[Rfam]
RNA: ASpks TB sRNA
Organism: Nocardia sp. SYP-A9097
RNA sequence: UUUCAGUGAGCCGAGCAGCAGUGGCCGAUCCGCCGGCCGAUCCUGCCCGUAGGUGGCCAGCAACGCCUGCGCUUC
Numbered sequence: 001u002u003u004c005a006g007u008g009a010g011c012c013g014a015g016c017a018g019c020a021g022u023g024g025c026c027g028a029u030c031c032g033c034c035g036g037c038c039g040a041u042c043c044u045g046c047c048c049g050u051a052g053g054u055g056g057c058c059a060g061c062a063a064c065g066c067c068u069g070c071g072c073u074u075c
Base pairs, nucleotide, nucleotide: 015025016024031071032070033069038065039064043060044059045058047056048055049054